[Rfam]
c-di-AMP riboswitch aptamer (ydaO/yuaA leader): a 168-nucleotide RNA from Streptomyces sp. SID8379. The match comes from Rfam's covariance-model search (59 bits). Gene Ontology terms of the family: cyclic-di-AMP binding and regulation of gene expression. On this family, see Barrick et al., Proc Natl Acad Sci U S A 2004: "New RNA motifs suggest an expanded scope for riboswitches in bacterial genetic control". Lineage of the source: Bacteria > Actinomycetes > Kitasatosporales > Streptomycetaceae > Streptomyces.
RNA sequence: GAGUUCCGUACGCCGCGAGGCAGGGAACCGGGGACCCACCGACCUUGGGGUGAAUCGGCCGACGGCCCGGCAGCACCGGGCAGUUGACCGUAGGGCACCUUCCGUACGCAGCGCGAGCUGUACGCCCGAACCCGACAGCUAACCCGGUAGGCGGACCACGGAAGGAGU
Numbered sequence: 001g002a003g004u005u006c007c008g009u010a011c012g013c014c015g016c017g018a019g020g021c022a023g024g025g026a027a028c029c030g031g032g033g034a035c036c037c038a039c040c041g042a043c044c045u046u047g048g049g050g051u052g053a054a055u056c057g058g059c060c061g062a063c064g065g066c067c068c069g070g071c072a073g074c075a076c077c078g079g080g081c082a083g084u085u086g087a088c089c090g091u092a093g094g095g096c097a098c099c100u101u102c103c104g105u106a107c108g109c110a111g112c113g114c115g116a117g118c119u120g121u122a123c124g125c126c127c128g129a130a131c132c133c134g135a136c137a138g139c140u141a142a143c144c145c146g147g148u149a150g151g152c153g154g155a156c157c158a159c160g161g162a163a164g165g166a167g168u
Stems, first nucleotide, its partner, number of pairs: 004026003027148006037047002048133003056090003093127004